Source information: The family of this 147-nucleotide RNA from Actinia tenebrosa is "U12 minor spliceosomal RNA". A search with the family's covariance model found it, with a score of 94 bits. The base pairs follow the family's consensus structure. Rfam links the family to the GO terms U12 snRNP, mRNA branch site recognition and pre-mRNA branch point binding.
[Rfam]
RNA sequence: UUGCCUUAAACUAAUGAGUAAGGAAAAUAACGACCUGGGUGACGCCAGGUUUGACGAUGAGUAUCGUAUGUAAUUUUUGACGGAUAGAGAGGUUACCCCCAGAUGACCCGCUUACUUACGCGGGAUGUCUGUGUUGCUGCGACCUCC
Numbered sequence: 001u002u003g004c005c006u007u008a009a010a011c012u013a014a015u016g017a018g019u020a021a022g023g024a025a026a027a028u029a030a031c032g033a034c035c036u037g038g039g040u041g042a043c044g045c046c047a048g049g050u051u052u053g054a055c056g057a058u059g060a061g062u063a064u065c066g067u068a069u070g071u072a073a074u075u076u077u078u079g080a081c082g083g084a085u086a087g088a089g090a091g092g093u094u095a096c097c098c099c100c101a102g103a104u105g106a107c108c109c110g111c112u113u114a115c116u117u118a119c120g121c122g123g124g125a126u127g128u129c130u131g132u133g134u135u136g137c138u139g140c141g142a143c144c145u146c147c
Base pairs, nucleotide, nucleotide: 004023005022006021007020008019032051033050034049035048036047037046038045054067055066056065057064090145091144092143093142094141096139101130102129103128104127105126107124108123109122110121111120